This 94-nucleotide RNA from Geotrypetes seraphini belongs to the Rfam family "mir-1388 microRNA precursor family". A reference for the family is Soares et al. (2009), "Parallel DNA pyrosequencing unveils new zebrafish microRNAs", BMC Genomics. The family's consensus secondary structure was predicted with RNAalifold. Gene Ontology terms of the family: RISC complex and miRNA-mediated post-transcriptional gene silencing. The organism belongs to Geotrypetes, within Eukaryota.

RNA sequence: AAUUGAGGAGCAUUUCUAGGACUGUCUAACCUGAGAAUGGGGAAGCAAAAAAGGUCAAUCUCAGGUUCGUCAGUCCAUGAAAUGCUUUCUCUAC
Numbered sequence: 001a002a003u004u005g006a007g008g009a010g011c012a013u014u015u016c017u018a019g020g021a022c023u024g025u026c027u028a029a030c031c032u033g034a035g036a037a038u039g040g041g042g043a044a045g046c047a048a049a050a051a052a053g054g055u056c057a058a059u060c061u062c063a064g065g066u067u068c069g070u071c072a073g074u075c076c077a078u079g080a081a082a083u084g085c086u087u088u089c090u091c092u093a094c
Stems, first nucleotide, its partner, number of pairs: 005091003008087009019076002022073003026069001028067009038057002